[Rfam]
Shown here is a 68-nucleotide RNA sequence from Tamilnaduibacter salinus, a member of the family "int-alpA RNA". Taxonomically the source falls in Tamilnaduibacter (Bacteria, Pseudomonadati, Gammaproteobacteria, Marinobacteraceae). It is annotated as a small RNA. Rfam describes the family as follows. Acidobacteria (1 example), Planctomycetes (1 example), Proteobacteria.
RNA sequence: GCUGCACCUAUCCCGGCCAGGAGAAAAGCGGGCACCCUACCCGCCUGGUGCGGCCUACCAUCAUAGGG
Numbered sequence: 001g002c003u004g005c006a007c008c009u010a011u012c013c014c015g016g017c018c019a020g021g022a023g024a025a026a027a028g029c030g031g032g033c034a035c036c037c038u039a040c041c042c043g044c045c046u047g048g049u050g051c052g053g054c055c056u057a058c059c060a061u062c063a064u065a066g067g068g
Stems, first nucleotide, its partner, number of pairs: 001054008011022003028044005035068005